This 71-nucleotide RNA sequence from Pan troglodytes belongs to the Rfam family "mir-374 microRNA precursor family". Its family is annotated with miRNA-mediated post-transcriptional gene silencing and RISC complex in the Gene Ontology.
RNA sequence: ACUCGGAUGGAUAUAAUACAACCUGCUAAGUGUCCUAGCACUUAGCAGGUUGUAUUAUCAUUGUCCGUGUC
Number, nucleotide and partner (000 for none) at each position: 001a000002c000003u000004c000005g000006g000007a000008u000009g000010g000011a000012u000013a058014u057015a056016a055017u054018a053019c052020a051021a050022c000023c048024u047025g046026c000027u044028a043029a042030g041031u040032g039033u038034c000035c000036u000037a000038g033039c032040a031041c030042u029043u028044a027045g000046c025047a024048g023049g000050u021051u020052g019053u018054a017055u016056u015057a014058u013059c000060a000061u000062u000063g000064u000065c000066c000067g000068u000069g000070u000071c000